[Rfam]
RNA sequence: GAUGGUCCUCGGUAGUGGUUUCCGCGCUUGAAUACUUGCGCGUGAACUUCGAUCGAAGAUUCAUU
Number, nucleotide and partner (000 for none) at each position: 001g065002a064003u000004g061005g060006u059007c058008c000009u056010c055011g054012g053013u052014a000015g000016u000017g048018g047019u046020u045021u044022c000023c042024g041025c040026g039027c038028u000029u000030g000031a000032a000033u000034a000035c000036u000037u000038g027039c026040g025041c024042g023043u000044g021045a020046a019047c018048u017049u000050c000051g000052a013053u012054c011055g010056a009057a000058g007059a006060u005061u004062c000063a000064u002065u001
This 65-nucleotide sequence belongs to the Rfam family "Actino-pnp RNA". The base pairs follow the family's consensus structure, which is taken from published work. By type it is a cis-regulatory element.